This 281-nucleotide RNA from Trichoplax adhaerens belongs to the Rfam family "RNase MRP". The organism belongs to Trichoplax, within Eukaryota. The base pairs follow the family's consensus structure, which is taken from published work.

[Rfam]
RNA sequence: AGACAUAGCGAAGGUUCGCCGGCAAAGCUACAUACGGGAAAGGAGAUUGUCUAAUCUCGAGAUUUUCCAACUCGCUUUGGGGAAAGUCCCCGGACAAACUUUGCAGAAAGUGCUGACCAUAAAGGUCAAUCGGCAAUUGGGCAAGAUUUAGCCAAGAAGCUUUACAGCUGAGCGUACAAAUUUUGCCCAUUCUGCCAAGUUGUCGAAGCACAGUCAUGCGAACGAGCGUGCACUCAUCUCGAGUCCAUGCUUAACACAACGGGGCUUAUUCUCGUUAUGUC
Numbered sequence: 001a002g003a004c005a006u007a008g009c010g011a012a013g014g015u016u017c018g019c020c021g022g023c024a025a026a027g028c029u030a031c032a033u034a035c036g037g038g039a040a041a042g043g044a045g046a047u048u049g050u051c052u053a054a055u056c057u058c059g060a061g062a063u064u065u066u067c068c069a070a071c072u073c074g075c076u077u078u079g080g081g082g083a084a085a086g087u088c089c090c091c092g093g094a095c096a097a098a099c100u101u102u103g104c105a106g107a108a109a110g111u112g113c114u115g116a117c118c119a120u121a122a123a124g125g126u127c128a129a130u131c132g133g134c135a136a137u138u139g140g141g142c143a144a145g146a147u148u149u150a151g152c153c154a155a156g157a158a159g160c161u162u163u164a165c166a167g168c169u170g171a172g173c174g175u176a177c178a179a180a181u182u183u184u185g186c187c188c189a190u191u192c193u194g195c196c197a198a199g200u201u202g203u204c205g206a207a208g209c210a211c212a213g214u215c216a217u218g219c220g221a222a223c224g225a226g227c228g229u230g231c232a233c234u235c236a237u238c239u240c241g242a243g244u245c246c247a248u249g250c251u252u253a254a255c256a257c258a259a260c261g262g263g264g265c266u267u268a269u270u271c272u273c274g275u276u277a278u279g280u281c
Base pairs, nucleotide, nucleotide: 002281003280004279005278006277007276008275009274010273011272014223015222016221017220018219019218023079024078025077026076027075028074043058044057045056046055047054048053084267085266086265088264089263090262091261103113104112105111115127116126117125118124131194132193133192138189139188140187141186142185145182146181147180148179151173152172159168160167161166225251226250227249228248229247230246

From the family's description: RNase MRP is an enzymatically active ribonucleoprotein with two distinct roles in eukaryotes.